[Rfam]
RNA sequence: UGCUUAUCAGUGAUGUUGUCGAAAAAAUGUCUGAACAUAUGAAUGCAAUAUUGAUUUCAGCAUCUGACUGAGAUAAGCU
Numbered sequence: 001u002g003c004u005u006a007u008c009a010g011u012g013a014u015g016u017u018g019u020c021g022a023a024a025a026a027a028u029g030u031c032u033g034a035a036c037a038u039a040u041g042a043a044u045g046c047a048a049u050a051u052u053g054a055u056u057u058c059a060g061c062a063u064c065u066g067a068c069u070g071a072g073a074u075a076a077g078c079u
Stems, first nucleotide, its partner, number of pairs: 002078007
This 79-nucleotide RNA sequence from Dipodomys ordii belongs to the Rfam family "Small nucleolar RNA SNORD72". For this family Rfam cites "RNomics: an experimental approach that identifies 201 candidates for novel, small, non-messenger RNAs in mouse" (Huttenhofer et al., EMBO J, 2001). Gene Ontology terms of the family: RNA processing and nucleolus. It scores 96 bits against the family's covariance model. About the family: snoRNA HBII-240 belongs to the CD family of snoRNAs. It is the human orthologue of the mouse MBII-240 and is predicted to guide 2'O-ribose methylation of the large 28S rRNA at residue U4590.